[Rfam]
RNA sequence: GAGGAAGCGAUGAUUAUAAAAAAUAAUUCCUCGUUCUGAUAGCUCGAAAGGGGCAUGACAGACCUCUUAUUACACCCAUAGAAUCUGAGCUCC
Numbered sequence: 001g002a003g004g005a006a007g008c009g010a011u012g013a014u015u016a017u018a019a020a021a022a023a024u025a026a027u028u029c030c031u032c033g034u035u036c037u038g039a040u041a042g043c044u045c046g047a048a049a050g051g052g053g054c055a056u057g058a059c060a061g062a063c064c065u066c067u068u069a070u071u072a073c074a075c076c077c078a079u080a081g082a083a084u085c086u087g088a089g090c091u092c093c
Base pairs, nucleotide, nucleotide: 003093004092006091007090
Source information:
This 93-nucleotide RNA sequence from Gossypium raimondii belongs to the Rfam family "Small nucleolar RNA snoR8a". Rfam classes the family as a C/D-box small nucleolar RNA. Its family is annotated with nucleolus and RNA processing in the Gene Ontology. Lineage of the source: Eukaryota > Tracheophyta > Euphyllophyta > Pentapetalae > Gossypium. On this family, see Brown et al., RNA 2001: "Multiple snoRNA gene clusters from Arabidopsis".